[Rfam]
RNA sequence: CUUUCGAUGGACUCUACGGCGGAAAUCGGCUGCCUGCUUCCUUGCCAUUAAGAAUUUGGAAACUAAAGGUAUAAACACAGCCUUCGUGGUUUAAGGUGGUUUUUAGUACGUAGGCGUUGUAGAACAAAAUCUCUCUUUAUCUGCAACGAAUCGUGCAUGCGAGUCAUCGAUGUGUAUCGGAAACGAUCGAACUCGUAUCAUAACUAUGAAAAUUUUCCAUCCUCGCGUC
Numbered sequence: 001c002u003u004u005c006g007a008u009g010g011a012c013u014c015u016a017c018g019g020c021g022g023a024a025a026u027c028g029g030c031u032g033c034c035u036g037c038u039u040c041c042u043u044g045c046c047a048u049u050a051a052g053a054a055u056u057u058g059g060a061a062a063c064u065a066a067a068g069g070u071a072u073a074a075a076c077a078c079a080g081c082c083u084u085c086g087u088g089g090u091u092u093a094a095g096g097u098g099g100u101u102u103u104u105a106g107u108a109c110g111u112a113g114g115c116g117u118u119g120u121a122g123a124a125c126a127a128a129a130u131c132u133c134u135c136u137u138u139a140u141c142u143g144c145a146a147c148g149a150a151u152c153g154u155g156c157a158u159g160c161g162a163g164u165c166a167u168c169g170a171u172g173u174g175u176a177u178c179g180g181a182a183a184c185g186a187u188c189g190a191a192c193u194c195g196u197a198u199c200a201u202a203a204c205u206a207u208g209a210a211a212a213u214u215u216u217c218c219a220u221c222c223u224c225g226c227g228u229c
Stems, first nucleotide, its partner, number of pairs: 038071001040069004077228002080226002094223003098218002106156005115148006121136003158197006
Dot-bracket structure: .....................................(.((((......................)))).).....((.((............(((.((......(((((....(((((((((..........)))......))))))...))))).((((((............................))))))...................))..))).)))).